[Rfam]
A member of the RNA family "mir-1306 microRNA precursor family" from Oryzias latipes, 63 nucleotides long. Gene Ontology terms of the family: miRNA-mediated post-transcriptional gene silencing and RISC complex. Pairs were carried over by alignment from the consensus structure, which was predicted with RNAalifold. It is one of the family's seed sequences. Taxonomically the source falls in Oryzias (Eukaryota, Teleostomi, Acanthomorphata, Adrianichthyoidei).
RNA sequence: ACCUCCACCACCUCCCCUGCAAACGUCCAGUGACGCAGAGGUAAUGGACGUUAGCUCUGGUGG
Numbered sequence: 001a002c003c004u005c006c007a008c009c010a011c012c013u014c015c016c017c018u019g020c021a022a023a024c025g026u027c028c029a030g031u032g033a034c035g036c037a038g039a040g041g042u043a044a045u046g047g048a049c050g051u052u053a054g055c056u057c058u059g060g061u062g063g
Base pairs, nucleotide, nucleotide: 011063012062014060015059019055020054022052023051024050025049026048027047028046029045033042034041